[Rfam]
Nucleotides: 125
Stems, first nucleotide, its partner, number of pairs: 006050001008048001010045001014041001016039001021034003065118001067116001069114003077106005085098003
Number, partner (000 for none) and nucleotide at each position: 001000a002000c003000a004000g005000u006050c007000u008048g009000a010045a011000a012000a013000u014041c015000c016039c017000u018000u019000g020000g021034g022033g023032u024000c025000u026000c027000c028000u029000g030000u031000u032023g033022c034021c035000c036000c037000u038000g039016g040000u041014g042000c043000g044000a045010u046000a047000a048008c049000u050006g051000u052000g053000c054000c055000a056000a057000c058000a059000g060000c061000a062000g063000a064000g065118g066000g067116a068000g069114c070113a071112u072000u073000a074000a075000a076000c077106u078105c079104a080103u081102u082000g083000c084000c085098c086097a087096u088000g089000c090000u091000a092000a093000a094000g095000u096087g097086u098085g099000g100000g101000g102081a103080g104079u105078g106077a107000u108000a109000c110000c111000c112071a113070u114069g115000a116067u117000c118065c119000u120000a121000u122000a123000a124000u125000c
Notes: Shown here is a 125-nucleotide sequence from Bucco capensis, a member of the family "Small nucleolar RNA ACA64". Rfam classes the family as an H/ACA-box small nucleolar RNA. Lineage of the source: Eukaryota > Vertebrata > Euteleostomi > Sarcopterygii > Bucco.